[Rfam]
RNA sequence: UCCGCCAUGGACGGCGGUGCUUAUAUGCAGCAUCGAGUUUGUUACAACAAACUCGAUGUUCAAAAAUAUACACGGACGUAUAUUUUUGAACGCGC
Numbered sequence: 001u002c003c004g005c006c007a008u009g010g011a012c013g014g015c016g017g018u019g020c021u022u023a024u025a026u027g028c029a030g031c032a033u034c035g036a037g038u039u040u041g042u043u044a045c046a047a048c049a050a051a052c053u054c055g056a057u058g059u060u061c062a063a064a065a066a067u068a069u070a071c072a073c074g075g076a077c078g079u080a081u082a083u084u085u086u087u088g089a090a091c092g093c094g095c
Stems, first nucleotide, its partner, number of pairs: 002017005034055009058091014